[Rfam]
RNA sequence: AACGACCGCCCAGCUUAUUCUCGUAGUAGGAAGGCGCGCUGCCUGGGCGAUGUGACCAUCGUCCGGAAGGGCUAGCGCGCGAUCAGGCCUCCUCGGGGGCCUUUUUUAUUGCCUGAA
Numbered sequence: 001a002a003c004g005a006c007c008g009c010c011c012a013g014c015u016u017a018u019u020c021u022c023g024u025a026g027u028a029g030g031a032a033g034g035c036g037c038g039c040u041g042c043c044u045g046g047g048c049g050a051u052g053u054g055a056c057c058a059u060c061g062u063c064c065g066g067a068a069g070g071g072c073u074a075g076c077g078c079g080c081g082a083u084c085a086g087g088c089c090u091c092c093u094c095g096g097g098g099g100c101c102u103u104u105u106u107u108a109u110u111g112c113c114u115g116a117a
Stems, first nucleotide, its partner, number of pairs: 009026001029113002032110001034080008046060002049057001063070002085102007
RNA: Rhizobiales sRNA Atu_C8
Organism: Stappia sediminis